[Rfam]
RNA sequence: GGUCAUGAGCGCCAGCGCGAAGCCCCGGCUCGCUGGCCGGCAACCCUCCUCCGCGACGGGGUGCCCCGGGUGACGACCUGGCGGCUGCAGCCCCGCAGCCGCAAAGCGCGGACC
Numbered sequence: 001g002g003u004c005a006u007g008a009g010c011g012c013c014a015g016c017g018c019g020a021a022g023c024c025c026c027g028g029c030u031c032g033c034u035g036g037c038c039g040g041c042a043a044c045c046c047u048c049c050u051c052c053g054c055g056a057c058g059g060g061g062u063g064c065c066c067c068g069g070g071u072g073a074c075g076a077c078c079u080g081g082c083g084g085c086u087g088c089a090g091c092c093c094c095g096c097a098g099c100c101g102c103a104a105a106g107c108g109c110g111g112a113c114c
Stems, first nucleotide, its partner, number of pairs: 001078004009038001011037006021030002039065003044061003049055001081102008